Record summary:
The record is a 109-nucleotide RNA sequence from Rothia aerolata, which matches "SAM (S-adenosyl methionine) riboswitch aptamer" in Rfam. Rfam's curators write: SAM-IV is a mRNA element that regulates gene expression via direct sensing of S-adenosylmethionine (SAM or AdoMet). NCBI's taxonomy places the organism under Bacteria, Bacillati, Actinomycetes, Micrococcaceae, Rothia. It scores 87 bits against the family's covariance model.
[Rfam]
RNA sequence: GAUCAUGAGUCCCAACGCUAAGCUCUGGCUGGUUGGGCGGCAACCCUCUCCCGUAGCGGGGUGCCCCAGAUGAAGAUCAGGCUGAUAUAAAUCAUGGCAAGUACGGCGC
Numbered sequence: 001g002a003u004c005a006u007g008a009g010u011c012c013c014a015a016c017g018c019u020a021a022g023c024u025c026u027g028g029c030u031g032g033u034u035g036g037g038c039g040g041c042a043a044c045c046c047u048c049u050c051c052c053g054u055a056g057c058g059g060g061g062u063g064c065c066c067c068a069g070a071u072g073a074a075g076a077u078c079a080g081g082c083u084g085a086u087a088u089a090a091a092u093c094a095u096g097g098c099a100a101g102u103a104c105g106g107c108g109c
Base pairs, nucleotide, nucleotide: 001078002077003076004075009038011037012036013035014034015033016032021030022029039065040064041063044061045060046059048056049055081098082097083096084095086091